[Rfam]
RNA sequence: GGAUGAAUCCUUGGAGAGACUCUUAAUGAGCACCGAAGGAGAAAGUCGCAGGACAAAACUCUCAGGUAAAAGGACAGGGGAAGGUAA
Dot-bracket structure: .......((((((......(((.....))).(((((..(((...((......))....))))).))).......)))))).......
RNA: Glycine riboswitch aptamer
Organism: Clostridium tyrobutyricum